RNA sequence: CUCAAGUGGAGACCAGAACCCACUGAAAAAACGGGGCGAAUCCGAAAAGCCAUACGAGUAGGAAGAUU
Number, nucleotide and partner (000 for none) at each position: 001c000002u000003c000004a000005a000006g023007u022008g021009g020010a000011g000012a000013c000014c000015a000016g000017a000018a000019c000020c009021c008022a007023c006024u000025g000026a000027a000028a000029a000030a000031a000032c000033g000034g000035g051036g050037c049038g000039a000040a000041u000042c062043c061044g000045a000046a000047a000048a000049g037050c036051c035052a000053u000054a000055c000056g000057a000058g000059u000060a000061g043062g042063a000064a000065g000066a000067u000068u000
RNA: DUF805 RNA
Organism: Sunxiuqinia dokdonensis